[Rfam]
This 48-nucleotide RNA from Enterobacillus tribolii belongs to the Rfam family "Guanidine-II riboswitch aptamer (mini-ykkC)". About the family: Simpler in structure and has fewer highly conserved nucleotide positions than the ykkC-yxkD leader. The family's consensus secondary structure is taken from published work. Its family is annotated with regulation of gene expression in the Gene Ontology.
Nucleotides: 048
Stems, first nucleotide, its partner, number of pairs: 001020008035048005
Number, partner (000 for none) and nucleotide at each position: 001020u002019a003018c004017g005016c006015g007014g008013g009000a010000c011000g012000a013008c014007c015006c016005g017004u018003g019002u020001a021000c022000g023000u024000a025000u026000c027000a028000u029000a030000g031000u032000a033000a034000c035048g036047a037046g038045g039044g040000a041000c042000g043000g044039c045038c046037c047036u048035c